[Rfam]
RNA: MIR164 microRNA precursor family
Organism: Nyssa sinensis
RNA sequence: UGGAGAAGGGGAGCACGUGCAGAGAGAGUUCACCAAGUAGAAACCUUGCACGUGCCCUGCUUCUCCAAC
Numbered sequence: 001u002g003g004a005g006a007a008g009g010g011g012a013g014c015a016c017g018u019g020c021a022g023a024g025a026g027a028g029u030u031c032a033c034c035a036a037g038u039a040g041a042a043a044c045c046u047u048g049c050a051c052g053u054g055c056c057c058u059g060c061u062u063c064u065c066c067a068a069c
Stems, first nucleotide, its partner, number of pairs: 001067008010058002013055010024044001029036002